[Rfam]
RNA: TPP riboswitch aptamer (THI element)
RNA sequence: GCGCUGAAGCGGGGGUACCGCGCGCCGGGCGCGUGGUUGAGACAGACCCUUCGAACCUGACGCGGUUGAUACCGCCGUAGGGAAGCUUCGCCGGACGCCCU
Numbered sequence: 001g002c003g004c005u006g007a008a009g010c011g012g013g014g015g016u017a018c019c020g021c022g023c024g025c026c027g028g029g030c031g032c033g034u035g036g037u038u039g040a041g042a043c044a045g046a047c048c049c050u051u052c053g054a055a056c057c058u059g060a061c062g063c064g065g066u067u068g069a070u071a072c073c074g075c076c077g078u079a080g081g082g083a084a085g086c087u088u089c090g091c092c093g094g095a096c097g098c099c100c101u
Stems, first nucleotide, its partner, number of pairs: 006089005011050004016044001017037008056081004062075004